[Rfam]
RNA: PyrR binding site
RNA sequence: AAGACCUUUAAACACAGUCCCGUGAGGCUGGCAAGGUAGCGGAUGAUAUACAGGAAAAGACUGUCUUUUUUAUCUGUAUGUCGCUACAUCUGUCCUCUCGUCCACACGGCGGGAGGGCUUUUUUUAU
Numbered sequence: 001a002a003g004a005c006c007u008u009u010a011a012a013c014a015c016a017g018u019c020c021c022g023u024g025a026g027g028c029u030g031g032c033a034a035g036g037u038a039g040c041g042g043a044u045g046a047u048a049u050a051c052a053g054g055a056a057a058a059g060a061c062u063g064u065c066u067u068u069u070u071u072a073u074c075u076g077u078a079u080g081u082c083g084c085u086a087c088a089u090c091u092g093u094c095c096u097c098u099c100g101u102c103c104a105c106a107c108g109g110c111g112g113g114a115g116g117g118c119u120u121u122u123u124u125u126a127u
Base pairs, nucleotide, nucleotide: 004037005036006035007034008033015030016029017028018027019026046081047080048079049078050077051076052075053074054073056071057070058069059068088122092118093117094116095115096114097113098112099111100110101109
Dot-bracket structure: ...(((((......(((((......)))))..)))))........(((((((((.((((........)))).)))))))))......(...((((((((((.......))))))))))...).....